[Rfam]
This 214-nucleotide RNA sequence from Rhinopithecus bieti belongs to the Rfam family "Small nucleolar RNA U3". The family's consensus secondary structure is taken from published work. The literature on the family includes a 1997 paper in Nucleic Acids Res by Zwieb, "The uRNA database". Its family is annotated with nucleolus and RNA processing in the Gene Ontology. About the family: Small nucleolar RNAs (snoRNAs) are involved in the processing and modification of rRNA in the nucleolus. It scores 128 bits against the family's covariance model.
RNA sequence: AAGAGUAUAAUUUCAGGCAUCAAUUCUGUAGUUCCUUACUAGAGAAGUUUCUCUCAAUGUGUACAGCACUGGAAACCAUGAGGAGGUGGCAGCACAGCGUUCUCUGCUGAGCGUGAGGUUGGCUCUUGGUGUUGCUUUGCUGCAACUGUCAUUUGCCAUUGAUGAUGGUUCUUCUGUCCUCCAAGGGAGAGGGAGAGAAUGCAGUCUGAGUGGG
Numbered sequence: 001a002a003g004a005g006u007a008u009a010a011u012u013u014c015a016g017g018c019a020u021c022a023a024u025u026c027u028g029u030a031g032u033u034c035c036u037u038a039c040u041a042g043a044g045a046a047g048u049u050u051c052u053c054u055c056a057a058u059g060u061g062u063a064c065a066g067c068a069c070u071g072g073a074a075a076c077c078a079u080g081a082g083g084a085g086g087u088g089g090c091a092g093c094a095c096a097g098c099g100u101u102c103u104c105u106g107c108u109g110a111g112c113g114u115g116a117g118g119u120u121g122g123c124u125c126u127u128g129g130u131g132u133u134g135c136u137u138u139g140c141u142g143c144a145a146c147u148g149u150c151a152u153u154u155g156c157c158a159u160u161g162a163u164g165a166u167g168g169u170u171c172u173u174c175u176g177u178c179c180u181c182c183a184a185g186g187g188a189g190a191g192g193g194a195g196a197g198a199a200u201g202c203a204g205u206c207u208g209a210g211u212g213g214g
Base pairs, nucleotide, nucleotide: 002040003039005037009032011030014028015027016026017025049065054061076213077212078211079210097202098201099200100199101198102197103196104195105194107192108191111169112168121157122156123155127151128150129149130148131146132145133144134143135142170188171187172186173185175183176182